The family of this 79-nucleotide sequence from Flavobacterium sp. 9AF is "Flavo-1 RNA". The match comes from Rfam's covariance-model search (70 bits). NCBI's taxonomy places the organism under Bacteria, Flavobacteriia, Flavobacteriales, Flavobacteriaceae, Flavobacterium. The base pairs follow the family's consensus structure, which is taken from published work.
RNA sequence: GCUUAGCCCCGAUUGUAGUGGCAUCCUUUUUAUUUUUUUACCUAAAAAUAAAAAGAUACAACGAAAAGCAGGAACAUAA
Numbered sequence: 001g002c003u004u005a006g007c008c009c010c011g012a013u014u015g016u017a018g019u020g021g022c023a024u025c026c027u028u029u030u031u032a033u034u035u036u037u038u039u040a041c042c043u044a045a046a047a048a049u050a051a052a053a054a055g056a057u058a059c060a061a062c063g064a065a066a067a068g069c070a071g072g073a074a075c076a077u078a079a
Stems, first nucleotide, its partner, number of pairs: 009071001011069001013067002018062002023057003029052008
Dot-bracket structure: ........(.(.((...((...(((...((((((((........))))))))..)))...))...)).).)........